The record is a 141-nucleotide sequence from Thalassotalea algicola, which matches "Molybdenum/Tungsten riboswitch aptamer (Moco RNA motif)" in Rfam.
[Rfam]
RNA sequence: AUCAAUUAAAUUCGCCGAGCUUGACUGCGCUAAAUAUUGAAAAGUAUAUGCCUAUCAAGCCGUAACUCAUAAGAGUUGCCAGGGUUAAUUAGGAAACUGAUUGGCCUCCCGCAUUUGGAAAGGUGAGAUGUUACAAGACAC
Number, nucleotide and partner (000 for none) at each position: 001a000002u000003c000004a000005a000006u000007u000008a000009a000010a000011u127012u126013c125014g124015c123016c122017g000018a000019g060020c059021u058022u057023g056024a055025c000026u054027g053028c000029g051030c050031u000032a000033a000034a047035u046036a045037u044038u000039g000040a000041a000042a000043a000044g037045u036046a035047u034048a000049u000050g030051c029052c000053u027054a026055u024056c023057a022058a021059g020060c019061c000062g079063u078064a077065a076066c075067u000068c000069a000070u000071a000072a000073g000074a000075g066076u065077u064078g063079c062080c000081a000082g107083g106084g105085u104086u103087a102088a101089u100090u099091a098092g097093g000094a000095a000096a000097c092098u091099g090100a089101u088102u087103g086104g085105c084106c083107u082108c118109c117110c000111g000112c000113a000114u000115u000116u000117g109118g108119a000120a000121a000122g016123g015124u014125g013126a012127g011128a000129u000130g000131u000132u000133a000134c000135a000136a000137g000138a000139c000140a000141c000